Small nucleolar RNA snoR100: a 110-nucleotide RNA from Rhododendron williamsianum. The literature on the family includes a 2002 paper in Curr Biol by Marker et al., "Experimental RNomics: identification of 140 candidates for small non-messenger RNAs in the plant Arabidopsis thaliana". The family has 9 seed sequences and 1,851 matches in Rfam 15.1. Pairs were carried over by alignment from the consensus structure, which was predicted with WAR.
RNA sequence: GAAUGAAUGAAGCAAGAUAAUGAGCACAAAAUUUGAAUCGGGUUGCUAUGCUUGCCCUCUCUGAUGCCUUUUUUUGGCUUUGAUUUGGGGCAUGGUUCCAGACAUAAUGU
Numbered sequence: 001g002a003a004u005g006a007a008u009g010a011a012g013c014a015a016g017a018u019a020a021u022g023a024g025c026a027c028a029a030a031a032u033u034u035g036a037a038u039c040g041g042g043u044u045g046c047u048a049u050g051c052u053u054g055c056c057c058u059c060u061c062u063g064a065u066g067c068c069u070u071u072u073u074u075u076g077g078c079u080u081u082g083a084u085u086u087g088g089g090g091c092a093u094g095g096u097u098c099c100a101g102a103c104a105u106a107a108u109g110u
Stems, first nucleotide, its partner, number of pairs: 012025002040093001042091003050084001052082001054078003